The family of this 126-nucleotide sequence from Macrococcoides caseolyticum is "Ribosomal protein L10 leader". Rfam classes the family as a cis-regulatory leader. The family's consensus secondary structure was predicted with CMfinder. This family is a putative r-protein leader autoregulatory structure found in B. subtilis and other low-GC Gram-positive bacteria. The literature on the family includes a 2015 paper in Nucleic Acids Res by Yakhnin et al., "Ribosomal protein L10(L12)4 autoregulates expression of the Bacillus subtilis rplJL operon by a transcription attenuation mechanism".
[Rfam]
RNA sequence: UUUGUAUUUUAUAAAUAACCUAAGACAGUAGGGGCAUCAAGCUUAAUAAUCCUACCGAGGUGAAAUUUGACUUGAACAUUUCAAGCACUUUUUGCCAUGGGUGAAAAGUGCUUUUUUAAUAUUCUU
Numbered sequence: 001u002u003u004g005u006a007u008u009u010u011a012u013a014a015a016u017a018a019c020c021u022a023a024g025a026c027a028g029u030a031g032g033g034g035c036a037u038c039a040a041g042c043u044u045a046a047u048a049a050u051c052c053u054a055c056c057g058a059g060g061u062g063a064a065a066u067u068u069g070a071c072u073u074g075a076a077c078a079u080u081u082c083a084a085g086c087a088c089u090u091u092u093u094g095c096c097a098u099g100g101g102u103g104a105a106a107a108g109u110g111c112u113u114u115u116u117u118a119a120u121a122u123u124c125u126u
Base pairs, nucleotide, nucleotide: 028055029054030053031052032051033050034042035041085111086110087109088108089107090106091105092104093103094102